[Rfam]
RNA sequence: UGAGCAGUUCCAAAGUGCUCACAGUGCAGGUAGUACAUACAGACCUACUGCAGUUUGUGCACUUCAGGUAUUGUUGG
Numbered sequence: 001u002g003a004g005c006a007g008u009u010c011c012a013a014a015g016u017g018c019u020c021a022c023a024g025u026g027c028a029g030g031u032a033g034u035a036c037a038u039a040c041a042g043a044c045c046u047a048c049u050g051c052a053g054u055u056u057g058u059g060c061a062c063u064u065c066a067g068g069u070a071u072u073g074u075u076g077g
Base pairs, nucleotide, nucleotide: 004074005073006072007071010068011067013064014063015062016061017060018059020057021056023054025052026051027050029049030048031047032046033045
This 77-nucleotide RNA sequence from Labrus bergylta belongs to the Rfam family "mir-17 microRNA precursor family". Rfam 15.1 lists 4,687 matches to the family in 648 species. Rfam links the family to the GO terms miRNA-mediated post-transcriptional gene silencing and RISC complex. This family represents the microRNA (miRNA) precursor mir-17, family, which includes mir-20, mir-91, and mir-103. miRNAs are transcribed as ~70nt precursors (modelled here) and subsequently processed by the Dicer enzyme to give a ~22nt product. In this case the mature sequence comes from the 3' arm of the precursor. The extents of the hairpin precursors are not generally known and are estimated based on hairpin prediction. The family's consensus secondary structure was predicted with RNAalifold.